[Rfam]
RNA sequence: CGAUGCCUCUGGAAAGCGGUGACCUCGCGGUCGCCCGCCCAUGGGGAAAGGUGCUCGCCGGUGCGCGGUGACGCCGAAUCUCUCAGGCGCCCGGUCCGGGUGGACGACAGAGGGGGAGGA
Dot-bracket structure: ...(.((((((......((((..........)))).(((.(..(((...((((..................))))....))))..)))...................)))))).).....

Rfam assigns this 120-nucleotide sequence from Mycobacterium sp. shizuoka-1 to the family "Glycine riboswitch aptamer". Lineage of the source: Bacteria > Bacillati > Mycobacteriales > Mycobacteriaceae > Mycobacterium.